[Rfam]
RNA sequence: AUUUGAGUGAGGAGUGAAAUAAGAAAGCCUUCGGAGUCGAAACAAGGAAAGACGCCCGAAGGUUUUUUUUUGGA
Numbered sequence: 001a002u003u004u005g006a007g008u009g010a011g012g013a014g015u016g017a018a019a020u021a022a023g024a025a026a027g028c029c030u031u032c033g034g035a036g037u038c039g040a041a042a043c044a045a046g047g048a049a050a051g052a053c054g055c056c057c058g059a060a061g062g063u064u065u066u067u068u069u070u071u072g073g074a
Base pairs, nucleotide, nucleotide: 021069022068023067024066025065028062029061033057034056036053037052038051
The record is a 74-nucleotide RNA sequence from Cyanobacterium sp. T60_A2020_053, which matches "Cyano-1 RNA" in Rfam. The match comes from Rfam's covariance-model search (55 bits).